Rfam assigns this 108-nucleotide sequence from Lachnospiraceae bacterium KM106-2 to the family "TPP riboswitch aptamer (THI element)". Taxonomically the source falls in Lachnospiraceae (Bacteria, Bacillati, Bacillota, Clostridia). Rfam's curators write: Vitamin B(1) in its active form thiamin pyrophosphate (TPP) is an essential coenzyme that is synthesised by coupling of pyrimidine and thiazole moieties in bacteria.
[Rfam]
RNA sequence: UUGUAAAUAACGGGGAGCUCAUGUAAAUGGGCUGAGAGUAGGCUGGAAUGCCUUGACCCAAAACCUGAUUUGGAUAAUGCCAACGUAGGGAAAGAUGGAAGCAUAAGU
Numbered sequence: 001u002u003g004u005a006a007a008u009a010a011c012g013g014g015g016a017g018c019u020c021a022u023g024u025a026a027a028u029g030g031g032c033u034g035a036g037a038g039u040a041g042g043c044u045g046g047a048a049u050g051c052c053u054u055g056a057c058c059c060a061a062a063a064c065c066u067g068a069u070u071u072g073g074a075u076a077a078u079g080c081c082a083a084c085g086u087a088g089g090g091a092a093a094g095a096u097g098g099a100a101g102c103a104u105a106a107g108u
Base pairs, nucleotide, nucleotide: 006096008094012059013058014057016054017032018031019030020029021028040053041052042051043050064089065088066087067086070083071082072081073080